RNA sequence: GUCGGUUGGCCGGAACCUGCUGGUCCCGGAUCCUGAACAGCCCCCCCAGCCCCCCUGGAUCGCGGGCUUCGGUCAACCGGCGCUUCUUUCUAUAGAGCACCCCAAUGCGAGCCCGCGCGGAUCCUCCCCCCACCCGCGCGGGCU
Numbered sequence: 001g002u003c004g005g006u007u008g009g010c011c012g013g014a015a016c017c018u019g020c021u022g023g024u025c026c027c028g029g030a031u032c033c034u035g036a037a038c039a040g041c042c043c044c045c046c047c048a049g050c051c052c053c054c055c056u057g058g059a060u061c062g063c064g065g066g067c068u069u070c071g072g073u074c075a076a077c078c079g080g081c082g083c084u085u086c087u088u089u090c091u092a093u094a095g096a097g098c099a100c101c102c103c104a105a106u107g108c109g110a111g112c113c114c115g116c117g118c119g120g121a122u123c124c125u126c127c128c129c130c131c132a133c134c135c136g137c138g139c140g141g142g143c144u
Stems, first nucleotide, its partner, number of pairs: 001081013016066005022061004028054002033049003089109001091107002110144011